[Rfam]
RNA: Small nucleolar RNA U2-19
RNA sequence: GAUCAAGGAUGAAAAUAUCCAGAUCUAAGCAUCAGAGGCCUUCCAGGCUACCUGAUGUACAAUUUUUGUAGUUCUGAGA
Number, nucleotide and partner (000 for none) at each position: 001g000002a000003u000004c000005a000006a000007g000008g000009a000010u000011g000012a000013a000014a000015a000016u000017a000018u000019c000020c000021a000022g000023a000024u000025c000026u000027a000028a000029g058030c057031a056032u055033c054034a000035g000036a049037g048038g000039c046040c000041u000042u000043c000044c000045a000046g039047g000048c037049u036050a000051c000052c000053u000054g033055a032056u031057g030058u029059a000060c000061a000062a000063u000064u000065u000066u000067u000068g000069u000070a000071g000072u000073u000074c000075u000076g000077a000078g000079a000